RNA sequence: UACGUGCUUCGGGGUCAGUGAAAGUCUGAACCGGCGGUGAUAGUCCGCGACCCGCGCGCCUCGCGCGGUUGAAUCGGUGAAAUUCCGAUACCGACGGUUAAAGUCCGGAUGGGAGAAGCUCGUU
Numbered sequence: 001u002a003c004g005u006g007c008u009u010c011g012g013g014g015u016c017a018g019u020g021a022a023a024g025u026c027u028g029a030a031c032c033g034g035c036g037g038u039g040a041u042a043g044u045c046c047g048c049g050a051c052c053c054g055c056g057c058g059c060c061u062c063g064c065g066c067g068g069u070u071g072a073a074u075c076g077g078u079g080a081a082a083u084u085c086c087g088a089u090a091c092c093g094a095c096g097g098u099u100a101a102a103g104u105c106c107g108g109a110u111g112g113g114a115g116a117a118g119c120u121c122g123u124u
Stems, first nucleotide, its partner, number of pairs: 003122002006119005016028003030104002032093002034048004043091002052068002073089005095107003
Dot-bracket structure: ..((.(((((.....(((.......))).[[((((((.....[[))))...((.............))....(((((.......)))))]])).(((.....]]))).......))))).))..
Background
This 124-nucleotide RNA sequence from Bowdeniella nasicola belongs to the Rfam family "FMN riboswitch aptamer (RFN element)". The base pairs follow the family's consensus structure, which is taken from published work.